[Rfam]
RNA sequence: GGGCUCUUAGCUCAGUGGAUAGAGCAACCGCCUUCUAAGCGGUCGGUCACUGGUUCGAGCCCAGUAGAGCCCG
Numbered sequence: 001g002g003g004c005u006c007u008u009a010g011c012u013c014a015g016u017g018g019a020u021a022g023a024g025c026a027a028c029c030g031c032c033u034u035c036u037a038a039g040c041g042g043u044c045g046g047u048c049a050c051u052g053g054u055u056c057g058a059g060c061c062c063a064g065u066a067g068a069g070c071c072c073g
Stems, first nucleotide, its partner, number of pairs: 001072007010025004027043005049065005

This 73-nucleotide sequence from Leptolyngbyaceae cyanobacterium LF-bin-113 belongs to the Rfam family "tRNA". It scores 69 bits against the family's covariance model. Lineage of the source: Bacteria > Bacillati > Cyanophyceae > Leptolyngbyales > Leptolyngbyaceae. Rfam classes the family as a transfer RNA. Rfam describes the family as follows. Transfer RNA (tRNA) molecules are approximately 80 nucleotides in length. Their secondary structure includes four short double-helical elements and three loops (D, anti-codon, and T loops). Further hydrogen bonds mediate the characteristic L-shaped molecular structure. tRNAs have two regions of fundamental functional importance: the anti-codon, which is responsible for specific mRNA codon recognition, and the 3' end, to which the tRNAs corresponding amino acid is attached (by aminoacyl-tRNA synthetases). tRNAs cope with the degeneracy of the genetic code in two manners: having more than one tRNA (with a specific anti-codon) for a particular amino acid; and 'wobble' base-pairing, i.e. permitting non-standard base-pairing at the 3rd anti-codon position.